[Rfam]
RNA sequence: AGGCAGCCCCCUUUUCUAUAAUUGAUUGGAAGGGAGGUGUUAAUCUGCUCGUAAAUUGAAUUUGUUUAUGCUCUUCAGAUUUGCUUAGAUAUAUUAAUAUCUUUGAAGCUGGUCCAGUAAGCUUAAGCACAAU
Numbered sequence: 001a002g003g004c005a006g007c008c009c010c011c012u013u014u015u016c017u018a019u020a021a022u023u024g025a026u027u028g029g030a031a032g033g034g035a036g037g038u039g040u041u042a043a044u045c046u047g048c049u050c051g052u053a054a055a056u057u058g059a060a061u062u063u064g065u066u067u068a069u070g071c072u073c074u075u076c077a078g079a080u081u082u083g084c085u086u087a088g089a090u091a092u093a094u095u096a097a098u099a100u101c102u103u104u105g106a107a108g109c110u111g112g113u114c115c116a117g118u119a120a121g122c123u124u125a126a127g128c129a130c131a132a133u
Stems, first nucleotide, its partner, number of pairs: 002041004007037002009034005015029002065127003070122003078114004083109003088101003
Shown here is a 133-nucleotide RNA from Solanum lycopersicum, a member of the family "Small nucleolar RNA snoR77". It is annotated as an H/ACA-box small nucleolar RNA. Rfam 15.1 lists 649 matches to the family in 221 species. Rfam links the family to the GO terms RNA processing and nucleolus. A reference for the family is Marker et al. (2002), "Experimental RNomics: identification of 140 candidates for small non-messenger RNAs in the plant Arabidopsis thaliana", Curr Biol. NCBI's taxonomy places the organism under Eukaryota, Streptophyta, eudicotyledons, Pentapetalae, Solanum subgen. Lycopersicon.